[Rfam]
Rfam assigns this 109-nucleotide sequence from Sorghum bicolor to the family "MIR5565 microRNA precursor family".
The family has 7 seed sequences and 3,346 matches in Rfam 15.1.
The family's consensus secondary structure was predicted with RNAalifold.
RNA sequence: GUAGUUGGUUUCGCACCAAUCCACAUAUGUUAGGGUGGGUUGGAGUGGAAUUUGAACUAAAUUUCACCCCAAUCCACUUCAAUACAUGUGGAUUGAGGUGAAUUCAACA
Numbered sequence: 001g002u003a004g005u006u007g008g009u010u011u012c013g014c015a016c017c018a019a020u021c022c023a024c025a026u027a028u029g030u031u032a033g034g035g036u037g038g039g040u041u042g043g044a045g046u047g048g049a050a051u052u053u054g055a056a057c058u059a060a061a062u063u064u065c066a067c068c069c070c071a072a073u074c075c076a077c078u079u080c081a082a083u084a085c086a087u088g089u090g091g092a093u094u095g096a097g098g099u100g101a102a103u104u105c106a107a108c109a
Base pairs, nucleotide, nucleotide: 004108005107006106007105008104010102011101012100013099014098017095018094019093020092021091022090023089024088025087026086028084029083030082031081035077036076037075038074039073040072041071042070043069045067046066047065